[Rfam]
RNA: sucC RNA
Organism: Pseudomonas kuykendallii
RNA sequence: GUCACAGGUGGCGCGGCAGCACUAACGCAGCGCCGAAUGCGCAAUACCUAACGAAGACGGUAGAUAAG
Numbered sequence: 001g002u003c004a005c006a007g008g009u010g011g012c013g014c015g016g017c018a019g020c021a022c023u024a025a026c027g028c029a030g031c032g033c034c035g036a037a038u039g040c041g042c043a044a045u046a047c048c049u050a051a052c053g054a055a056g057a058c059g060g061u062a063g064a065u066a067a068g
Base pairs, nucleotide, nucleotide: 009035010034011033012032013031014030016028017027